[Rfam]
RNA sequence: AAAAUCCAACUUAGGCAAAGUCUAGCCAACAGCCUAGAACAGACCAUUAUGCUGCGUGAGGUAACGAGCGUAGUAAAGCUAAUGGAAUGGACAAUAUAGGGUGCAAUGAAAAUGAAGGUAUUGAGUCCCGAAAUAAAAAUAAAGUGAUGGAGGUCGACAUUUUCCAUAGAAUGGAAGGCAGCAUAAGGGGUAACAAUAAGGCAAGUUAUCACUCACUCUAUCGGGAUCGGAGGCCG
Numbered sequence: 001a002a003a004a005u006c007c008a009a010c011u012u013a014g015g016c017a018a019a020g021u022c023u024a025g026c027c028a029a030c031a032g033c034c035u036a037g038a039a040c041a042g043a044c045c046a047u048u049a050u051g052c053u054g055c056g057u058g059a060g061g062u063a064a065c066g067a068g069c070g071u072a073g074u075a076a077a078g079c080u081a082a083u084g085g086a087a088u089g090g091a092c093a094a095u096a097u098a099g100g101g102u103g104c105a106a107u108g109a110a111a112a113u114g115a116a117g118g119u120a121u122u123g124a125g126u127c128c129c130g131a132a133a134u135a136a137a138a139a140u141a142a143a144g145u146g147a148u149g150g151a152g153g154u155c156g157a158c159a160u161u162u163u164c165c166a167u168a169g170a171a172u173g174g175a176a177g178g179c180a181g182c183a184u185a186a187g188g189g190g191u192a193a194c195a196a197u198a199a200g201g202c203a204a205g206u207u208a209u210c211a212c213u214c215a216c217u218c219u220a221u222c223g224g225g226a227u228c229g230g231a232g233g234c235c236g
Stems, first nucleotide, its partner, number of pairs: 012036005020030002023204001025202002040089002044085004050075008060065001122230001123228001125227006147221006153179003158173004184215001186213002189210006

A member of the RNA family "Group II catalytic intron D1-D4-6" from Trichonephila clavata, 236 nucleotides long. The match comes from Rfam's covariance-model search (129 bits). The organism belongs to Trichonephila, within Eukaryota. A reference for the family is Bonen and Vogel (2001), "The ins and outs of group II introns", Trends Genet. Gene Ontology term of the family: Group II intron splicing.